Rfam assigns this 89-nucleotide RNA sequence from Clostridiales bacterium PH28_bin88 to the family "c-di-GMP-I riboswitch aptamer". The base pairs follow the family's consensus structure, which is taken from published work. Its family is annotated with cyclic-di-GMP binding in the Gene Ontology.
[Rfam]
RNA sequence: CUCUGAUAAGGGCAAACCAUCCGAAAGGUUGGGACGCAAAGCCGUGGGUCUAAGGCAGUAAUGACUGCUAUGAUUGCCAGGUUGCCGGA
Dot-bracket structure: ...........((...(((.((....)).)))...))..((((.((((((....((((......))))...)))..)))))))......